[Rfam]
RNA sequence: AGAGUUAGCCAGACAAUCGCUGCUUGCUUCGGCAAGGGGAGGAAAGUCCGGGCUCUAUAGGGCAGGGUGCCAGAUAACGUCUGGGCGGCGCGAGCCGACGACAAGUGCAACAGAGAGCAAACCGCCGAUGGCCUGCAUUAGCAGGAUCAGGUAAGGGUGAAAGGGUGCGGUAAGAGCGCACCGCGCGGCUGGUAACAGUUCGUGGCACGGUAAACUCCACCCGGAGCAAGGUCAAAUAGGGGUUCAUUGGCGCGGCCCGCGUUGAACCCGGGUAGACUGCUUGAUCACUAGAGUAAUUUAGUGACUAGACGAAUGAUUGUCCACGACAAAACCCGGCUUAUCGGCUAACUCGCUGA
Dot-bracket structure: .(((((((((((((((((.((.(((((....))))).))....[[[.[[[[[((((...[[[[.((((((((((.....)))))(((((....)))).)((...((((.............(((((...((.((.........)).)).)))..)).......((((((.......))))))(((((((((....))).))))).)...))..)))))))))))))...((((......((((((...(((((.]]]]))))))))))).....))))......((((((((....))))))))..........)))))))..........]]]]]]]].).))))))))).....
Numbered sequence: 001a002g003a004g005u006u007a008g009c010c011a012g013a014c015a016a017u018c019g020c021u022g023c024u025u026g027c028u029u030c031g032g033c034a035a036g037g038g039g040a041g042g043a044a045a046g047u048c049c050g051g052g053c054u055c056u057a058u059a060g061g062g063c064a065g066g067g068u069g070c071c072a073g074a075u076a077a078c079g080u081c082u083g084g085g086c087g088g089c090g091c092g093a094g095c096c097g098a099c100g101a102c103a104a105g106u107g108c109a110a111c112a113g114a115g116a117g118c119a120a121a122c123c124g125c126c127g128a129u130g131g132c133c134u135g136c137a138u139u140a141g142c143a144g145g146a147u148c149a150g151g152u153a154a155g156g157g158u159g160a161a162a163g164g165g166u167g168c169g170g171u172a173a174g175a176g177c178g179c180a181c182c183g184c185g186c187g188g189c190u191g192g193u194a195a196c197a198g199u200u201c202g203u204g205g206c207a208c209g210g211u212a213a214a215c216u217c218c219a220c221c222c223g224g225a226g227c228a229a230g231g232u233c234a235a236a237u238a239g240g241g242g243u244u245c246a247u248u249g250g251c252g253c254g255g256c257c258c259g260c261g262u263u264g265a266a267c268c269c270g271g272g273u274a275g276a277c278u279g280c281u282u283g284a285u286c287a288c289u290a291g292a293g294u295a296a297u298u299u300a301g302u303g304a305c306u307a308g309a310c311g312a313a314u315g316a317u318u319g320u321c322c323a324c325g326a327c328a329a330a331a332c333c334c335g336g337c338u339u340a341u342c343g344g345c346u347a348a349c350u351c352g353c354u355g356a
Stems, first nucleotide, its partner, number of pairs: 002351009011341001012321007020039002023036005044339003048336005053226004060258004065222005070084005085099001086097004100217002105215002107211002122156002124152003130148002133145002164182006183206001184204005189198003230278004240269006249263005285304008
This 356-nucleotide RNA sequence from Pseudidiomarina piscicola belongs to the Rfam family "Bacterial RNase P class A". The match comes from Rfam's covariance-model search (323 bits). By type it is a ribozyme. Rfam describes the family as follows. Ribonuclease P (RNase P) is a ubiquitous endoribonuclease, found in archaea, bacteria and eukarya as well as chloroplasts and mitochondria. NCBI's taxonomy places the organism under Bacteria, Pseudomonadati, Pseudomonadota, Alteromonadales, Pseudidiomarina.